[Rfam]
RNA sequence: AUUAUCCUAUGAUGUUUAAUUAUUACCUACAUUGUCAGAUUGUCAUGACUGAUACACUUGAUCUGAGGAUUUU
Number, nucleotide and partner (000 for none) at each position: 001a073002u000003u000004a070005u069006c068007c067008u000009a000010u000011g000012a000013u000014g000015u000016u000017u000018a000019a000020u000021u000022a000023u000024u000025a000026c000027c000028u000029a000030c000031a000032u000033u000034g000035u000036c000037a000038g000039a000040u000041u000042g000043u000044c000045a000046u000047g000048a000049c000050u000051g000052a000053u000054a000055c000056a000057c000058u000059u000060g000061a000062u000063c000064u000065g000066a000067g007068g006069a005070u004071u000072u000073u001
The family of this 73-nucleotide RNA sequence from Candidula unifasciata is "Small nucleolar RNA SNORD34". snoRNA U34 is found in intron 5 of the ribosomal protein L13a gene in humans. Gene Ontology terms of the family: RNA processing and nucleolus. Clan: SNORD34 clan. The literature on the family includes a 2002 paper in Mol Cell Biol by Galardi et al., "Purified box C/D snoRNPs are able to reproduce site-specific 2'-O-methylation of target RNA in vitro". The family's RNA type in Rfam is C/D-box small nucleolar RNA. The family has 14 seed sequences and 1,319 matches in Rfam 15.1.